[Rfam]
Rfam assigns this 489-nucleotide part of an RNA from Chironomus tentans to the family "Eukaryotic large subunit ribosomal RNA". The literature on the family includes a 2001 paper in Science by Yusupov et al., "Crystal structure of the ribosome at 5.5 A resolution". Gene Ontology terms of the family: structural constituent of ribosome and ribosome. The organism belongs to Camptochironomus, within Eukaryota.
RNA sequence: UAGAACAAUGUAGGUAAGGGAAGUCGGCAAAUUAGAUCCGUAACUUCGGGAUAAGGAUUGGCUCUGAAGACUGUGGUAGCUGCGCGGACUAUAUGAUAUUAGUUUCGUAUGCCUUCCCAGGUAUAUGAGAUUCGAUAUUAAGUCUGUGUAUUUAUAAAUGUCUUUCGCGAGAUGUCUAUAAAAAAGGCUAUCAAUUAACAGUCAAUUCAGAACUGGCACGGUUUAGGGAAUCCGACUGUCUAAUUAAAACAAAGCAUUGUGAUGGUUCUCGGUGGAUGUUGACACAAUGUGAUUUCUGCCCAGUGCUCUGAAUGUCAACGUGAAGAAAUUCAAGCAAGCGCGGGUAAACGGCGGGAGUAACUAUGACUCUCUUAAGGUAGCCAAAUGCCUCGUCAUCUAAUUAGUGACGCGCAUGAAUGGAUUAACGAGAUUCCCACUGUCCCUAUCUACUAUCUAGCGAAACCACAGCCAAGGGAACGGGCUUGGAAA
Dot-bracket structure: ((((.....(((((((.(((..............(((((....(....).....)))))((.(((((((((((.(((((((..(((.(........((((((((((((((((((....)))))))))))))).)))).......).)))....................................)))))))......)))))..)))))).))(...)......(((((((((..(((.........)))..((((((((...((((.....)))).....))))))))...(((.(((..((((((.(..(((.....((((....)))).....))))))))..)))))((((((.......))))))(...)...............(((((.......)))))..........)))....)).)))))))....))).)))))))..))))............(((((........)))))...